[Rfam]
RNA sequence: AGACCCAGAGAGAGAGGCAGGGUCUAAUCCACAGCCUCAAUGGCAGCUGUUGAUCAGUACCUGCCUCUUUCUUUCUCUUCC
Numbered sequence: 001a002g003a004c005c006c007a008g009a010g011a012g013a014g015a016g017g018c019a020g021g022g023u024c025u026a027a028u029c030c031a032c033a034g035c036c037u038c039a040a041u042g043g044c045a046g047c048u049g050u051u052g053a054u055c056a057g058u059a060c061c062u063g064c065c066u067c068u069u070u071c072u073u074u075c076u077c078u079u080c081c
Stems, first nucleotide, its partner, number of pairs: 008073013024057002027054003032049004

This 81-nucleotide RNA sequence from Pipistrellus kuhlii belongs to the Rfam family "mir-574 microRNA precursor family".
Its family is annotated with miRNA-mediated post-transcriptional gene silencing and RISC complex in the Gene Ontology.
The family's consensus secondary structure was predicted with RNAalifold.
The literature on the family includes a 2007 paper in Cancer Res by Lui et al., "Patterns of known and novel small RNAs in human cervical cancer".
The family has 6 seed sequences and 4,084 matches in Rfam 15.1.